[Rfam]
RNA: U12 minor spliceosomal RNA
Organism: Echeneis naucrates
RNA sequence: AUGCCUUAAACUGAUGAGUAAGGAAAAUAACGACCCGGGGUGACGCCCGUGUCCUCGUUCACAUCACGAGAUGAAUUUUUGAACGGGUACAGGUCUGCCGGCUCAGGUGACUCGCCUACUUCGCGAGAUGCCUCUCUGGACCAGGACCUAUCCC
Numbered sequence: 001a002u003g004c005c006u007u008a009a010a011c012u013g014a015u016g017a018g019u020a021a022g023g024a025a026a027a028u029a030a031c032g033a034c035c036c037g038g039g040g041u042g043a044c045g046c047c048c049g050u051g052u053c054c055u056c057g058u059u060c061a062c063a064u065c066a067c068g069a070g071a072u073g074a075a076u077u078u079u080u081g082a083a084c085g086g087g088u089a090c091a092g093g094u095c096u097g098c099c100g101g102c103u104c105a106g107g108u109g110a111c112u113c114g115c116c117u118a119c120u121u122c123g124c125g126a127g128a129u130g131c132c133u134c135u136c137u138g139g140a141c142c143a144g145g146a147c148c149u150a151u152c153c154c
Stems, first nucleotide, its partner, number of pairs: 004023005032053003036049004054070005085153004091149006100136002105133005111127005